RNA sequence: UGUGCAAAUGAUGAUAAAACAGACAGGGACAUCAGCCACUCCAAUUGAAAUUGGAGAAUGUUGACUAUGUCUAAAUGGGAAUCUCUCUGAUGCAAA
Numbered sequence: 001u002g003u004g005c006a007a008a009u010g011a012u013g014a015u016a017a018a019a020c021a022g023a024c025a026g027g028g029a030c031a032u033c034a035g036c037c038a039c040u041c042c043a044a045u046u047g048a049a050a051u052u053g054g055a056g057a058a059u060g061u062u063g064a065c066u067a068u069g070u071c072u073a074a075a076u077g078g079g080a081a082u083c084u085c086u087c088u089g090a091u092g093c094a095a096a
Base pairs, nucleotide, nucleotide: 003094004093005092006091
A member of the RNA family "Small nucleolar RNA R44/J54/Z268 family" from Populus trichocarpa, 96 nucleotides long. Gene Ontology terms of the family: nucleolus and RNA processing. Its Rfam clan is "SNORD74 clan". Rfam's curators put it in the seed alignment. The base pairs follow the family's consensus structure, which was predicted with PFOLD.